Rfam assigns this 81-nucleotide RNA from Bacteroides finegoldii to the family "Bacteroides-1 RNA".
[Rfam]
RNA sequence: AUGCGAUCGACCUGAAGCUGUUCAUGGGUAUGUGAAUAUAUAUGAACAGUACUUAUACCUCUCCGGUAUAGACAGGGGAUU
Numbered sequence: 001a002u003g004c005g006a007u008c009g010a011c012c013u014g015a016a017g018c019u020g021u022u023c024a025u026g027g028g029u030a031u032g033u034g035a036a037u038a039u040a041u042a043u044g045a046a047c048a049g050u051a052c053u054u055a056u057a058c059c060u061c062u063c064c065g066g067u068a069u070a071g072a073c074a075g076g077g078g079a080u081u
Stems, first nucleotide, its partner, number of pairs: 017050003022045005028039004053071007
Dot-bracket structure: ................(((..(((((.((((....)))).)))))..)))..(((((((.....)))))))..........